This 121-nucleotide RNA from Cnephaeus nilssonii belongs to the Rfam family "Small nucleolar RNA SNORA68". Its family is annotated with nucleolus and RNA processing in the Gene Ontology. The match comes from Rfam's covariance-model search (73 bits). Pairs were carried over by alignment from the consensus structure, which was predicted with PFOLD. Rfam describes the family as follows. U68 is a member of the H/ACA class of small nucleolar RNAs (snoRNAs) which act as guides in the the modification of uridines to pseudouridines. The literature on the family includes a 1997 paper in Genes Dev by Ganot et al., "The family of box ACA small nucleolar RNAs is defined by an evolutionarily conserved secondary structure and ubiquitous sequence elements essential for RNA accumulation". NCBI's taxonomy places the organism under Eukaryota, Euteleostomi, Tetrapoda, Boreoeutheria, Cnephaeus.
RNA sequence: CAGGCACCUAAGCUGUUUGUUAUAGCAGCACUUUAAACAGGAGGUGCUGGCAGCAAGCAAUCUCAUCGCCUUUGGGGGCUAGGACUGUGCCCCUCAAAGUGAAUUGGGAGGCUCUCCAUCC
Numbered sequence: 001c002a003g004g005c006a007c008c009u010a011a012g013c014u015g016u017u018u019g020u021u022a023u024a025g026c027a028g029c030a031c032u033u034u035a036a037a038c039a040g041g042a043g044g045u046g047c048u049g050g051c052a053g054c055a056a057g058c059a060a061u062c063u064c065a066u067c068g069c070c071u072u073u074g075g076g077g078g079c080u081a082g083g084a085c086u087g088u089g090c091c092c093c094u095c096a097a098a099g100u101g102a103a104u105u106g107g108g109a110g111g112c113u114c115u116c117c118a119u120c121c
Stems, first nucleotide, its partner, number of pairs: 003048007010033002012029006059113001061111004070099005075093005